[Rfam]
RNA: mir-10 microRNA precursor family
Organism: Cyclopterus lumpus
RNA sequence: AGACACAUACCUAUAGAUACGAGCUUGUGCAGCCAGUCACCACAAGUUCGGAUCUACGGGUUUGUGUCAG
Numbered sequence: 001a002g003a004c005a006c007a008u009a010c011c012u013a014u015a016g017a018u019a020c021g022a023g024c025u026u027g028u029g030c031a032g033c034c035a036g037u038c039a040c041c042a043c044a045a046g047u048u049c050g051g052a053u054c055u056a057c058g059g060g061u062u063u064g065u066g067u068c069a070g
Base pairs, nucleotide, nucleotide: 002068003067004066005065006064007063010060011059012058015055016054017053018052020050021049022048023047024046025045026044027043028042029041